[Rfam]
RNA sequence: UUCUUACUGAGAAUGGCACUGAAAGAAUUCACGGGUUUUUUUUUAUUGAGUUUACCGUGAUUCUCUAGUGCCAUACUCAGUGGGCU
Numbered sequence: 001u002u003c004u005u006a007c008u009g010a011g012a013a014u015g016g017c018a019c020u021g022a023a024a025g026a027a028u029u030c031a032c033g034g035g036u037u038u039u040u041u042u043u044u045a046u047u048g049a050g051u052u053u054a055c056c057g058u059g060a061u062u063c064u065c066u067a068g069u070g071c072c073a074u075a076c077u078c079a080g081u082g083g084g085c086u
Stems, first nucleotide, its partner, number of pairs: 003084008013074006020067002025062002029060006
Description
A member of the RNA family "mir-263 microRNA precursor family" from Rhodnius prolixus, 86 nucleotides long. The base pairs follow the family's consensus structure, which was predicted with RNAalifold. NCBI's taxonomy places the organism under Eukaryota, Protostomia, Dicondylia, Reduvioidea, Rhodnius.